Shown here is a 491-nucleotide sequence from Monodelphis domestica, a member of the family "Vertebrate telomerase RNA". Its Rfam clan is "Telomerase clan". From the family's description: Telomerase is a ribonucleoprotein reverse transcriptase that synthesises telomeric DNA. Telomerase RNAs differ greatly in sequence and structure between vertebrates, ciliates and yeasts, but they share a 5' pseudoknot structure close to the template sequence. Vertebrate telomerase RNAs have a 3' H/ACA snoRNA-like domain.

[Rfam]
RNA sequence: UGGGAGUGGAGUGCGCUUGGUCUGUUUGUUGCCGAUUUCUGUCCUGUCCAAGGUCGCAGCUACCUCCGCUCGCUGUUUUUGUAGCUGACUUUCAGCGGGACAGAGGAGUACGGAGCAGAGUCUAAAGGAGCGAGAGAAAAACGUCAGCUGAGGCCAGGCGGCCCCACUUCUGGCCCGUCCGCCCCGUCCGGGCCCGGCCCCGGCCCGAACCCCCUGGGGAUGCCCCCCACAGGACCUGCGCUCACCCGCGGAGUCCCGGCUCCUCACACAGAGAGGCGGUGGUCGUCUCAGGGCUCCUGCGUGCGGGGGCGUCCACUGCGACCGCCAAGAGUUUGGCUCUGUCAGCCUCGGGGUACGCGGGGGUCUUCAGGGUAAGCUCCUAGGCCUGGCGGGGGGCCGGGGCCACAGGGAGAGUAAACGUGAGCAGAGUCCAGGCAGCUGGGUGCUCCCUUGAGCCGUGGGAGCUACCCCUGGGCGCAGCCCCGACAGAC
Numbered sequence: 001u002g003g004g005a006g007u008g009g010a011g012u013g014c015g016c017u018u019g020g021u022c023u024g025u026u027u028g029u030u031g032c033c034g035a036u037u038u039c040u041g042u043c044c045u046g047u048c049c050a051a052g053g054u055c056g057c058a059g060c061u062a063c064c065u066c067c068g069c070u071c072g073c074u075g076u077u078u079u080u081g082u083a084g085c086u087g088a089c090u091u092u093c094a095g096c097g098g099g100a101c102a103g104a105g106g107a108g109u110a111c112g113g114a115g116c117a118g119a120g121u122c123u124a125a126a127g128g129a130g131c132g133a134g135a136g137a138a139a140a141a142c143g144u145c146a147g148c149u150g151a152g153g154c155c156a157g158g159c160g161g162c163c164c165c166a167c168u169u170c171u172g173g174c175c176c177g178u179c180c181g182c183c184c185c186g187u188c189c190g191g192g193c194c195c196g197g198c199c200c201c202g203g204c205c206c207g208a209a210c211c212c213c214c215u216g217g218g219g220a221u222g223c224c225c226c227c228c229a230c231a232g233g234a235c236c237u238g239c240g241c242u243c244a245c246c247c248g249c250g251g252a253g254u255c256c257c258g259g260c261u262c263c264u265c266a267c268a269c270a271g272a273g274a275g276g277c278g279g280u281g282g283u284c285g286u287c288u289c290a291g292g293g294c295u296c297c298u299g300c301g302u303g304c305g306g307g308g309g310c311g312u313c314c315a316c317u318g319c320g321a322c323c324g325c326c327a328a329g330a331g332u333u334u335g336g337c338u339c340u341g342u343c344a345g346c347c348u349c350g351g352g353g354u355a356c357g358c359g360g361g362g363g364u365c366u367u368c369a370g371g372g373u374a375a376g377c378u379c380c381u382a383g384g385c386c387u388g389g390c391g392g393g394g395g396g397c398c399g400g401g402g403c404c405a406c407a408g409g410g411a412g413a414g415u416a417a418a419c420g421u422g423a424g425c426a427g428a429g430u431c432c433a434g435g436c437a438g439c440u441g442g443g444u445g446c447u448c449c450c451u452u453g454a455g456c457c458g459u460g461g462g463a464g465c466u467a468c469c470c471c472u473g474g475g476c477g478c479a480g481c482c483c484c485g486a487c488a489g490a491c
Stems, first nucleotide, its partner, number of pairs: 001172009011162002014160005064108003069099007084148006090141003213409004218404002240377003244373004252364001254362005262353004278326009291313002328340004422483001424481002427478001429476004441470005447463004